About this RNA:
A member of the RNA family "Mammalian CPEB3 ribozyme" from Crocodylus porosus, 76 nucleotides long. The mammalian CPEB3 ribozyme is a self cleaving RNA located in the second intron of the CPEB3 gene which belongs to a family of genes regulating messenger RNA polyadenylation. The base pairs follow the family's consensus structure, which is taken from published work.
[Rfam]
RNA sequence: GGUUACAUAUUUGAAGCCAUAGUAGAAGCACUCAUGUCAUGGCCUGUCAGAUUCCAAUAAAUCUGCAAAUUCUGGU
Dot-bracket structure: ............[..[[[..(.((((((...........)]]]]...((((((......))))))....))))).)
About this RNA:
It scores 42 bits against the family's covariance model. Its family is annotated with RNA nuclease activity in the Gene Ontology.